[Rfam]
RNA sequence: UUGUGGUUAAACCACUGGAACUCCGCCCCAAAGGAUGAUGUCCGUGGAUACGGAAUGGGACGAAGGGGAGGAUCACAU
Numbered sequence: 001u002u003g004u005g006g007u008u009a010a011a012c013c014a015c016u017g018g019a020a021c022u023c024c025g026c027c028c029c030a031a032a033g034g035a036u037g038a039u040g041u042c043c044g045u046g047g048a049u050a051c052g053g054a055a056u057g058g059g060a061c062g063a064a065g066g067g068g069a070g071g072a073u074c075a076c077a078u
Stems, first nucleotide, its partner, number of pairs: 002077005022072003026068004041054005

This 78-nucleotide RNA sequence belongs to the Rfam family "DUF3800-X RNA". The family's consensus secondary structure is taken from published work. The sequence is in the family's curated seed alignment.